The family of this 363-nucleotide part of an RNA from Archangium sp. Cb G35 is "Bacterial large subunit ribosomal RNA". The match comes from Rfam's covariance-model search (2855 bits). The family's consensus secondary structure is taken from published work.
Nucleotides: 363
Base pairs, nucleotide, nucleotide: 001363002362003361004360009358010357011356012355013354015353016352017351019349020348021347036060037059038058039057040056045050061102062101063100064099065098066097081096083094085092086091103107115342116341117340118339120337121336122334123333126140127139128138143179144178145177146176147175148174149173150172151169155165156164157163182329183328184327185326187259188258189257192256193255194252195251196250197249198248201247202246203245207241208240213235214234215233216232219228220227260278261277262276263275264274265273279283289316299315300314301313302312303311304310
Number, partner (000 for none) and nucleotide at each position: 001363u002362g003361a004360g005000a006000g007000a008000a009358c010357u011356c012355u013354c014000c015353u016352c017351c018000a019349a020348g021347g022000a023000a024000c025000u026000a027000g028000g029000c030000a031000a032000a033000u034000u035000u036060c037059c038058a039057c040056c041000g042000u043000a044000a045050c046000u047000u048000c049000g050045g051000a052000a053000g054000a055000a056040g057039g058038u059037g060036g061102g062101c063100c064099u065098c066097u067000g068000g069000u070000a071000g072000g073000u074000g075000u076000a077000g078000g079000c080000g081096u082000a083094c084000a085092g086091c087000u088000g089000a090000a091086g092085c093000c094083g095000a096081g097066a098065g099064a100063g101062g102061u103107u104000g105000c106000a107103g108000a109000g110000a111000a112000a113000u114000g115342g116341c117340g118339g119000u120337a121336g122334c123333g124000a125000c126140u127139g128138u129000u130000u131000a132000c133000c134000a135000a136000a137000a138128a139127c140126a141000c142000a143179g144178g145177a146176c147175u148174c149173u150172g151169c152000g153000a154000a155165g156164g157163c158000a159000a160000g161000a162000a163157g164156c165155c166000g167000a168000c169151g170000u171000a172150u173149a174148g175147g176146g177145u178144c179143u180000g181000a182329c183328u184327c185326c186000u187259g188258c189257c190000c191000g192256g193255u194252g195251c196250u197249g198248g199000a200000a201247g202246g203245u204000u205000a206000a207241g208240g209000g210000g211000a212000u213235u214234c215233g216232u217000c218000a219228g220227c221000c222000g223000c224000a225000a226000g227220g228219c229000g230000a231000a232216g233215c234214g235213a236000u237000g238000a239000u240208c241207c242000g243000a244000a245203g246202c247201c248198c249197c250196a251195g252194u253000a254000a255193a256192c257189g258188g259187c260278g261277g262276c263275c264274g265273u266000a267000a268000c269000u270000a271000u272000a273265a274264c275263g276262g277261u278260c279283c280000u281000a282000a283279g284000g285000u286000a287000g288000c289316g290000a291000a292000a293000u294000u295000c296000c297000u298000u299315g300314u301313c302312g303311g304310g305000u306000a307000a308000g309000u310304u311303c312302c313301g314300a315299c316289c317000u318000g319000c320000a321000c322000g323000a324000a325000u326185g327184g328183a329182g330000u331000a332000a333123c334122g335000a336121c337120u338000u339118c340117c341116g342115c343000a344000c345000u346000g347021u348020c349019u350000c351017g352016g353015a354013g355012a356011g357010g358009g359000a360004c361003u362002c363001a